[Rfam]
RNA sequence: AGGCAACCCUCUUCUGUCAAAAAAAGUUGGGAAGGGAAGGUGUUAAUCUGCUCGUAUAUCAAUUUACUUGCGCUCUUCAGACUUGCUGAUUUUGUUCAUGAAGUUGGUCUAGUAAGCCUAAGUACAUC
Numbered sequence: 001a002g003g004c005a006a007c008c009c010u011c012u013u014c015u016g017u018c019a020a021a022a023a024a025a026g027u028u029g030g031g032a033a034g035g036g037a038a039g040g041u042g043u044u045a046a047u048c049u050g051c052u053c054g055u056a057u058a059u060c061a062a063u064u065u066a067c068u069u070g071c072g073c074u075c076u077u078c079a080g081a082c083u084u085g086c087u088g089a090u091u092u093u094g095u096u097c098a099u100g101a102a103g104u105u106g107g108u109c110u111a112g113u114a115a116g117c118c119u120a121a122g123u124a125c126a127u128c
Stems, first nucleotide, its partner, number of pairs: 002044004007040002009036007067122003072117003079110005085104003
RNA: Small nucleolar RNA snoR77
Organism: Erythranthe guttata